[Rfam]
RNA sequence: ACAAUGAUACUUCCGUCCAGUCACAGCUAAUAACAAUGAGGGCGGUUUUGUGAGAACCACAAAAGGGUGAGAUCCCCAUGA
Numbered sequence: 001a002c003a004a005u006g007a008u009a010c011u012u013c014c015g016u017c018c019a020g021u022c023a024c025a026g027c028u029a030a031u032a033a034c035a036a037u038g039a040g041g042g043c044g045g046u047u048u049u050g051u052g053a054g055a056a057c058c059a060c061a062a063a064a065g066g067g068u069g070a071g072a073u074c075c076c077c078a079u080g081a
Base pairs, nucleotide, nucleotide: 012078013045014044015043016042017041018040046064047063048062050060051059052058065077066076067075